Small nucleolar RNA Z102/R77: a 78-nucleotide RNA sequence from Coffea canephora. Clan: SNORD44 clan. The family's consensus secondary structure was predicted with PFOLD. Taxonomically the source falls in Coffea (Eukaryota, Mesangiospermae, Gentianales, Coffeeae). The family has 9 seed sequences and 1,346 matches in Rfam 15.1. The literature on the family includes a 2003 paper in Nucleic Acids Res by Chen et al., "The high diversity of snoRNAs in plants: identification and comparative study of 120 snoRNA genes from Oryza sativa".
[Rfam]
RNA sequence: GAAUGAAAUGAUGACACUUUUAUGUUUUGAUGGCCAAUGUGAUGGCUUUGAACGUGUAUUAGCUCUAGCUGAUCAUUC
Numbered sequence: 001g002a003a004u005g006a007a008a009u010g011a012u013g014a015c016a017c018u019u020u021u022a023u024g025u026u027u028u029g030a031u032g033g034c035c036a037a038u039g040u041g042a043u044g045g046c047u048u049u050g051a052a053c054g055u056g057u058a059u060u061a062g063c064u065c066u067a068g069c070u071g072a073u074c075a076u077u078c
Stems, first nucleotide, its partner, number of pairs: 002077004029049001032047004